[Rfam]
RNA sequence: AACUUUUCGGAGGUAUCAGCACUUUUCUUUCAUCAGUGGGGAAGGAAGGAUGAGACCCAGCAAGCAGCCCUAGACUUUUAAACUUUAAAUAGACAGCUCUGAGUGCUUGAUCGUGCUCUUCCAUUUUACUUUAAUUCUCCACAGAAGUGCUCUGAGCCUGUUUCCCUGCUGAGCAGCAAGGGUAAGUUGGAAGU
Numbered sequence: 001a002a003c004u005u006u007u008c009g010g011a012g013g014u015a016u017c018a019g020c021a022c023u024u025u026u027c028u029u030u031c032a033u034c035a036g037u038g039g040g041g042a043a044g045g046a047a048g049g050a051u052g053a054g055a056c057c058c059a060g061c062a063a064g065c066a067g068c069c070c071u072a073g074a075c076u077u078u079u080a081a082a083c084u085u086u087a088a089a090u091a092g093a094c095a096g097c098u099c100u101g102a103g104u105g106c107u108u109g110a111u112c113g114u115g116c117u118c119u120u121c122c123a124u125u126u127u128a129c130u131u132u133a134a135u136u137c138u139c140c141a142c143a144g145a146a147g148u149g150c151u152c153u154g155a156g157c158c159u160g161u162u163u164c165c166c167u168g169c170u171g172a173g174c175a176g177c178a179a180g181g182g183u184a185a186g187u188u189g190g191a192a193g194u
Base pairs, nucleotide, nucleotide: 003019004018007015029146030145031144036142037141038140039139040138041137042136043130044129049125050124051123052122054121055120072100073099074098076096077095101116103114104113105112157190158189160187161186164182165181166180167178168177169176170175
RNA: Connexin-43 internal ribosome entry site (IRES)